[Rfam]
RNA: c-di-GMP-I riboswitch aptamer
RNA sequence: UUUAAUAUUUGGCAAAAUCAGGGAAAUCUGGUGACGCAAAGCCAAAGGGCCUAAUCUAUCAUAGAUGGGAUGGCAGCCGGUUGCACUU
Numbered sequence: 001u002u003u004a005a006u007a008u009u010u011g012g013c014a015a016a017a018u019c020a021g022g023g024a025a026a027u028c029u030g031g032u033g034a035c036g037c038a039a040a041g042c043c044a045a046a047g048g049g050c051c052u053a054a055u056c057u058a059u060c061a062u063a064g065a066u067g068g069g070a071u072g073g074c075a076g077c078c079g080g081u082u083g084c085a086c087u088u
Stems, first nucleotide, its partner, number of pairs: 012037002017032006040082004047078002049074003056068004
Dot-bracket structure: ...........((...((((((....))))))...))..((((...(((((....((((.....))))...)))..))))))......